[Rfam]
Nucleotides: 141
Stems, first nucleotide, its partner, number of pairs: 001141023025117003029113011041101002045097007
Number, partner (000 for none) and nucleotide at each position: 001141a002140a003139u004138a005137g006136u007135u008134u009133u010132a011131u012130g013129c014128c015127a016126c017125a018124u019123c020122a021121g022120u023119a024000c025117u026116c027115u028000u029113a030112u031111c032110c033109u034108g035107a036106a037105u038104u039103u040000c041101a042100g043000g044000a045097u046096u047095u048094u049093a050092u051091c052000c053000u054000a055000a056000a057000a058000a059000a060000a061000u062000u063000a064000a065000a066000u067000u068000u069000a070000u071000a072000u073000u074000a075000a076000a077000a078000u079000a080000u081000u082000a083000a084000a085000a086000u087000u088000c089000a090000a091051g092050a093049u094048a095047a096046a097045a098000u099000c100042c101041u102000g103039a104038a105037a106036u107035u108034c109033a110032g111031g112030a113029u114000a115027a116026g117025a118000a119023u120022a121021c122020u123019g124018a125017u126016g127015u128014g129013g130012c131011a132010u133009a134008a135007a136006a137005c138004u139003a140002u141001u